Notes
The family of this 600-nucleotide part of an RNA from Melioribacter roseus is "Bacterial large subunit ribosomal RNA". It scores 2898 bits against the family's covariance model. The base pairs follow the family's consensus structure, which is taken from published work. Taxonomically the source falls in Melioribacter roseus (Bacteria, Pseudomonadati, Ignavibacteria, Ignavibacteriales). Its family is annotated with ribosome and structural constituent of ribosome in the Gene Ontology.
[Rfam]
RNA sequence: GGGCAUACGGUGGAUGCCUUGGCACAAUGAGGCGAUGAAGGACGCGGCUACCGGCGAUACGCCACGGGAAGGUGGAAGCAACCUAGGAUCCGUGGAUUUCCGAAUGGGGCAACCCUCCUCGAGUAAUGUCGAGGAACUCUCGCUUGAAUCCAUAGAGCGAGUAGAGCCAACCCGGGGAAGUGAAACAUCUCAGUACCCGGAGGAAAAGAAAACAAUAGUGAUUUCCUGAGUAGUGGCGAGCGAAAGGGAAAAAGCCUAAACCGUUCAACAUGUUAAAGGCCGUAACCGUUGUGUUGACGGUGUCGUGGGGUGCUUUCGGGCUGAUUUACGGUAAGCCGGGAAGUCAAAAAUUGUAUUGUUAGCUGAAUGUUCUGGAAAGUUCAACCACAGAGGGUGAUAGUCCCGUAAGCGAAAACAAUACAACUUCCUGGAAAGCGCUCCCAAGUAGCACGGAAUAAGUGGAAGUCUGUGCGAAUCCGGCAGAACCAUCUGCUAAGGCUAAAUACUCCAUUGUGACCGAUAGCGCAUAGUACCGUGAGGGAAAGGUGAAAAGUACUCCUAACAGGAGAGUGAAAUAGUACCUGAAACCGUAUGCUUACA
Numbered sequence: 001g002g003g004c005a006u007a008c009g010g011u012g013g014a015u016g017c018c019u020u021g022g023c024a025c026a027a028u029g030a031g032g033c034g035a036u037g038a039a040g041g042a043c044g045c046g047g048c049u050a051c052c053g054g055c056g057a058u059a060c061g062c063c064a065c066g067g068g069a070a071g072g073u074g075g076a077a078g079c080a081a082c083c084u085a086g087g088a089u090c091c092g093u094g095g096a097u098u099u100c101c102g103a104a105u106g107g108g109g110c111a112a113c114c115c116u117c118c119u120c121g122a123g124u125a126a127u128g129u130c131g132a133g134g135a136a137c138u139c140u141c142g143c144u145u146g147a148a149u150c151c152a153u154a155g156a157g158c159g160a161g162u163a164g165a166g167c168c169a170a171c172c173c174g175g176g177g178a179a180g181u182g183a184a185a186c187a188u189c190u191c192a193g194u195a196c197c198c199g200g201a202g203g204a205a206a207a208g209a210a211a212a213c214a215a216u217a218g219u220g221a222u223u224u225c226c227u228g229a230g231u232a233g234u235g236g237c238g239a240g241c242g243a244a245a246g247g248g249a250a251a252a253a254g255c256c257u258a259a260a261c262c263g264u265u266c267a268a269c270a271u272g273u274u275a276a277a278g279g280c281c282g283u284a285a286c287c288g289u290u291g292u293g294u295u296g297a298c299g300g301u302g303u304c305g306u307g308g309g310g311u312g313c314u315u316u317c318g319g320g321c322u323g324a325u326u327u328a329c330g331g332u333a334a335g336c337c338g339g340g341a342a343g344u345c346a347a348a349a350a351u352u353g354u355a356u357u358g359u360u361a362g363c364u365g366a367a368u369g370u371u372c373u374g375g376a377a378a379g380u381u382c383a384a385c386c387a388c389a390g391a392g393g394g395u396g397a398u399a400g401u402c403c404c405g406u407a408a409g410c411g412a413a414a415a416c417a418a419u420a421c422a423a424c425u426u427c428c429u430g431g432a433a434a435g436c437g438c439u440c441c442c443a444a445g446u447a448g449c450a451c452g453g454a455a456u457a458a459g460u461g462g463a464a465g466u467c468u469g470u471g472c473g474a475a476u477c478c479g480g481c482a483g484a485a486c487c488a489u490c491u492g493c494u495a496a497g498g499c500u501a502a503a504u505a506c507u508c509c510a511u512u513g514u515g516a517c518c519g520a521u522a523g524c525g526c527a528u529a530g531u532a533c534c535g536u537g538a539g540g541g542a543a544a545g546g547u548g549a550a551a552a553g554u555a556c557u558c559c560u561a562a563c564a565g566g567a568g569a570g571u572g573a574a575a576u577a578g579u580a581c582c583u584g585a586a587a588c589c590g591u592a593u594g595c596u597u598a599c600a
Stems, first nucleotide, its partner, number of pairs: 001597010016582001017546002021518002023515007030507002032167002040101003043056003062095007071083003106115003116135007137164002139161007171202001172200005182189002212219002222503001223250005233241002253500004261300005267294001307442003312436005348426002351423010362410003368383002372379001386390001392404003448472007456464001479494005533540002556568004